Rfam assigns this 69-nucleotide RNA from Scleropages formosus to the family "mir-338 microRNA precursor family". The literature on the family includes a 2005 paper in Genes Dev by Chen et al., "The developmental miRNA profiles of zebrafish as determined by small RNA cloning". Pairs were carried over by alignment from the consensus structure, which was predicted with RNAalifold. The family has 36 seed sequences and 1,231 matches in Rfam 15.1. The match comes from Rfam's covariance-model search (83 bits).

[Rfam]
RNA sequence: CCGGCAACAAUAUCCUGGUGCUGUCUGAGUGUGCAUCACCGACUCCAGCAUCAGUGAUUUUGUUGCUGG
Numbered sequence: 001c002c003g004g005c006a007a008c009a010a011u012a013u014c015c016u017g018g019u020g021c022u023g024u025c026u027g028a029g030u031g032u033g034c035a036u037c038a039c040c041g042a043c044u045c046c047a048g049c050a051u052c053a054g055u056g057a058u059u060u061u062g063u064u065g066c067u068g069g
Base pairs, nucleotide, nucleotide: 006064007063008062009061010060012058013057014056015054016053017052018051019050020049021048022047023046
Dot-bracket structure: .....(((((.((((((((((((......................))))))))).))).))))).....